[Rfam]
RNA sequence: GGCUUGAUGCCACAUCUCUGGUAGCUACAAACCUACAAGCUUUGACAAGAGAUGCUAUGAUUAGGCCGAUACAAAGUUGUUUCUGCUUCUUUAUCUCUGUAUCAUACUAGCACUUAUUAGGAUAUAGCUAGAUUGUUUAGGUACUAGAUUU
Numbered sequence: 001g002g003c004u005u006g007a008u009g010c011c012a013c014a015u016c017u018c019u020g021g022u023a024g025c026u027a028c029a030a031a032c033c034u035a036c037a038a039g040c041u042u043u044g045a046c047a048a049g050a051g052a053u054g055c056u057a058u059g060a061u062u063a064g065g066c067c068g069a070u071a072c073a074a075a076g077u078u079g080u081u082u083c084u085g086c087u088u089c090u091u092u093a094u095c096u097c098u099g100u101a102u103c104a105u106a107c108u109a110g111c112a113c114u115u116a117u118u119a120g121g122a123u124a125u126a127g128c129u130a131g132a133u134u135g136u137u138u139a140g141g142u143a144c145u146a147g148a149u150u151u
Stems, first nucleotide, its partner, number of pairs: 002066007009058001013054006021046002024040003086141002097127001099125005